[Rfam]
This 83-nucleotide sequence from Rhynchospora breviuscula belongs to the Rfam family "Small nucleolar RNA R16".
The family has 18 seed sequences and 884 matches in Rfam 15.1.
The organism belongs to Rhynchospora, within Eukaryota.
The family's consensus secondary structure was predicted with PFOLD.
Rfam links the family to the GO terms RNA processing and nucleolus.
RNA sequence: AGAGGCAAUGAUGUAAAUUUCUUAUCCUACACACAGAAUUUAAAACGUGUAGACAAAAUCUCCGCUUAUUUACUGAUGCCUUC
Numbered sequence: 001a002g003a004g005g006c007a008a009u010g011a012u013g014u015a016a017a018u019u020u021c022u023u024a025u026c027c028u029a030c031a032c033a034c035a036g037a038a039u040u041u042a043a044a045a046c047g048u049g050u051a052g053a054c055a056a057a058a059u060c061u062c063c064g065c066u067u068a069u070u071u072a073c074u075g076a077u078g079c080c081u082u083c
Stems, first nucleotide, its partner, number of pairs: 003081005